[Rfam]
RNA sequence: GGGGAUGACACGGCUUCGACGUGUAGUAAGCGUGCAGCAGACUGACCUGCCGAGCAGCCUGAUUCGCUUCGUAAAACCUGUCAGGAACUGUAACUGCGGACGAUUAUUCGUACGCGAUGGCGGCGUAACAGCCCCCAUCUGUCUCGCGUCGCUCCUGGCCCUUGGGGAGCGUGAGACAUCGACAAAAAGGGUGUAGCCGCCGCGUUCUCCGACUGCGGAUGCGCCGGUGAAAUCUAAUCAGUCUCAGCGCCGCCCUGGCCUUGUGAAUGGGCAGACGGGCGACGUGAACCGCCAAUGCAUUCACUAUGCAGGUAGAGGUUUGCCUGUGCGGCUACACGGACCCGGGUUCGACUCCCGGCAUCUCCACAA
Numbered sequence: 001g002g003g004g005a006u007g008a009c010a011c012g013g014c015u016u017c018g019a020c021g022u023g024u025a026g027u028a029a030g031c032g033u034g035c036a037g038c039a040g041a042c043u044g045a046c047c048u049g050c051c052g053a054g055c056a057g058c059c060u061g062a063u064u065c066g067c068u069u070c071g072u073a074a075a076a077c078c079u080g081u082c083a084g085g086a087a088c089u090g091u092a093a094c095u096g097c098g099g100a101c102g103a104u105u106a107u108u109c110g111u112a113c114g115c116g117a118u119g120g121c122g123g124c125g126u127a128a129c130a131g132c133c134c135c136c137a138u139c140u141g142u143c144u145c146g147c148g149u150c151g152c153u154c155c156u157g158g159c160c161c162u163u164g165g166g167g168a169g170c171g172u173g174a175g176a177c178a179u180c181g182a183c184a185a186a187a188a189g190g191g192u193g194u195a196g197c198c199g200c201c202g203c204g205u206u207c208u209c210c211g212a213c214u215g216c217g218g219a220u221g222c223g224c225c226g227g228u229g230a231a232a233u234c235u236a237a238u239c240a241g242u243c244u245c246a247g248c249g250c251c252g253c254c255c256u257g258g259c260c261u262u263g264u265g266a267a268u269g270g271g272c273a274g275a276c277g278g279g280c281g282a283c284g285u286g287a288a289c290c291g292c293c294a295a296u297g298c299a300u301u302c303a304c305u306a307u308g309c310a311g312g313u314a315g316a317g318g319u320u321u322g323c324c325u326g327u328g329c330g331g332c333u334a335c336a337c338g339g340a341c342c343c344g345g346g347u348u349c350g351a352c353u354c355c356c357g358g359c360a361u362c363u364c365c366a367c368a369a
Stems, first nucleotide, its partner, number of pairs: 001365007020338008034327004038322006046312005051071004058085006117138004122133003140178005146172004152167003158192006196228004201223001211243005247285003251281005260270001263304003268299002342358005
transfer-messenger RNA: a 369-nucleotide sequence from Salinibacter ruber.
The family's RNA type in Rfam is non-coding RNA gene.
Gene Ontology term of the family: RNA catabolic process.